RNA sequence: UGAUAAAAUAAAAUUAUAAAACGUAUAACUGCUUUGAUAUGGAAAGCGAGUCUCUACCCUAGGCCGUAAACUUAGGACUACGUGAAGAAAUUCCAUUUAA
Numbered sequence: 001u002g003a004u005a006a007a008a009u010a011a012a013a014u015u016a017u018a019a020a021a022c023g024u025a026u027a028a029c030u031g032c033u034u035u036g037a038u039a040u041g042g043a044a045a046g047c048g049a050g051u052c053u054c055u056a057c058c059c060u061a062g063g064c065c066g067u068a069a070a071c072u073u074a075g076g077a078c079u080a081c082g083u084g085a086a087g088a089a090a091u092u093c094c095a096u097u098u099a100a
Base pairs, nucleotide, nucleotide: 021083022082023081024080025079030048031047032046033045034044035043058076059075060074061073062072063071
Rfam assigns this 100-nucleotide RNA sequence from Candidatus Izimoplasma sp. HR2 to the family "Purine riboswitch aptamer". Pairs were carried over by alignment from the consensus structure, which is taken from published work. A search with the family's covariance model found it, with a score of 69 bits. The source organism's lineage runs through Bacteria, Mollicutes, Candidatus Izemoplasmatales, Candidatus Izemoplasmataceae and Candidatus Izemoplasma.